[Rfam]
RNA sequence: UGUAACUGAAAUGGGAGCUUAAAAGGUGAUACCUUAGCUGAGAGGAAACUUACGUUUCGACCAUGGACCUGAUACGGGUAAUGCCGUCGUAGGGAUUUGGAUGCUAUGAAUA
Numbered sequence: 001u002g003u004a005a006c007u008g009a010a011a012u013g014g015g016a017g018c019u020u021a022a023a024a025g026g027u028g029a030u031a032c033c034u035u036a037g038c039u040g041a042g043a044g045g046a047a048a049c050u051u052a053c054g055u056u057u058c059g060a061c062c063a064u065g066g067a068c069c070u071g072a073u074a075c076g077g078g079u080a081a082u083g084c085c086g087u088c089g090u091a092g093g094g095a096u097u098u099g100g101a102u103g104c105u106a107u108g109a110a111u112a
Stems, first nucleotide, its partner, number of pairs: 006100005011064004017038003021034001045058005068093004074087004
Description
The family of this 112-nucleotide RNA sequence from Firmicutes bacterium AF12-30 is "TPP riboswitch aptamer (THI element)". The base pairs follow the family's consensus structure, which is taken from published work.